[Rfam]
RNA sequence: GUUUUUUACCCAGUAUCUCAAGGUACUAGGAAUGUUCUGAUCGGAGGAAACUCCGUGUCGGAUUUUAAUUUUUGGAUUUGCCAAGGGGGAUUCCCUUGGU
Number, nucleotide and partner (000 for none) at each position: 001g000002u000003u000004u000005u000006u000007u034008a033009c030010c029011c000012a000013g026014u025015a000016u000017c000018u023019c000020a000021a000022g000023g018024u000025a014026c013027u000028a000029g010030g009031a000032a000033u008034g007035u000036u000037c000038u060039g059040a058041u057042c055043g054044g053045a052046g051047g000048a000049a000050a000051c046052u045053c044054c043055g042056u000057g041058u040059c039060g038061g000062a000063u000064u000065u000066u000067a000068a000069u000070u000071u000072u000073u000074g000075g000076a000077u000078u000079u000080g000081c000082c000083a100084a000085g000086g000087g096088g094089g093090a000091u000092u000093c089094c088095c000096u087097u000098g000099g000100u083